Rfam assigns this 281-nucleotide RNA from Macaca nemestrina to the family "Mason-Pfizer monkey virus packaging signal". It is annotated as a cis-regulatory element. This family represents a group of sequences that are related to the Mason-Pfizer monkey virus (MPMV) packaging signal. The packaging signal is located in the 5' UTR and is required for specific RNA encapsidation. Rfam 15.1 lists 2,921 matches to the family in 53 species. Pairs were carried over by alignment from the consensus structure, which was predicted with PFOLD.
RNA sequence: UGGCGCCUCAACGUGGAGGCCUGGAAACCAAGGGAUUCCCGUGAGGGAAGAGGGACGCAAAAGAACGGGUCGACCCGUCAGCUGAAACUAAAUCCUGCUCCCGAUCACCGCGGGAAACUGCCGGCGUCAGAAUCGGAAGGUAAGUGACGCGUCCGAAUGGACAAAAAUUAAGUAAACAUCAAAUCUAUGUAGACAAUUAAAAGAGGCUUUAAACGAGGAGUAAAGGUUAAAGGUAAUGAAUUUGUGUUAAAUUUUAUUGAUUUGUAAAAGACACUUCCCUU
Numbered sequence: 001u002g003g004c005g006c007c008u009c010a011a012c013g014u015g016g017a018g019g020c021c022u023g024g025a026a027a028c029c030a031a032g033g034g035a036u037u038c039c040c041g042u043g044a045g046g047g048a049a050g051a052g053g054g055a056c057g058c059a060a061a062a063g064a065a066c067g068g069g070u071c072g073a074c075c076c077g078u079c080a081g082c083u084g085a086a087a088c089u090a091a092a093u094c095c096u097g098c099u100c101c102c103g104a105u106c107a108c109c110g111c112g113g114g115a116a117a118c119u120g121c122c123g124g125c126g127u128c129a130g131a132a133u134c135g136g137a138a139g140g141u142a143a144g145u146g147a148c149g150c151g152u153c154c155g156a157a158u159g160g161a162c163a164a165a166a167a168u169u170a171a172g173u174a175a176a177c178a179u180c181a182a183a184u185c186u187a188u189g190u191a192g193a194c195a196a197u198u199a200a201a202a203g204a205g206g207c208u209u210u211a212a213a214c215g216a217g218g219a220g221u222a223a224a225g226g227u228u229a230a231a232g233g234u235a236a237u238g239a240a241u242u243u244g245u246g247u248u249a250a251a252u253u254u255u256a257u258u259g260a261u262u263u264g265u266a267a268a269a270g271a272c273a274c275u276u277c278c279c280u281u
Stems, first nucleotide, its partner, number of pairs: 006034003013028002039054002042051001094140002099137002105132001106130001109126003112122002149162001153160002169211003172207002214259003217255005224243004228238002268281003